[Rfam]
RNA sequence: AAGUAGAUAAUUGCUCUUUUAGUAUUUGUCCAGUAGGUUUCCUCAAGGAGAAAGCCCCC
Numbered sequence: 001a002a003g004u005a006g007a008u009a010a011u012u013g014c015u016c017u018u019u020u021a022g023u024a025u026u027u028g029u030c031c032a033g034u035a036g037g038u039u040u041c042c043u044c045a046a047g048g049a050g051a052a053a054g055c056c057c058c059c
Stems, first nucleotide, its partner, number of pairs: 036056005042050003
A member of the RNA family "U7 small nuclear RNA" from Salmo trutta, 59 nucleotides long.
Taxonomically the source falls in Salmo (Eukaryota, Opisthokonta, Teleostomi, Teleostei).
From the family's description: Animal histone pre-mRNAs are spliced by a different mechanism than nuclear pre-mRNAs and self-splicing introns. This processing involves the U7 snRNP, which contains only one RNA species: U7. The 5' end of U7 RNA is thought to base-pair to a conserved spacer element downstream of the cleavage site in histone pre-mRNA. This family contains a number of annotated U7 pseudogenes.
The base pairs follow the family's consensus structure, which was predicted with PFOLD.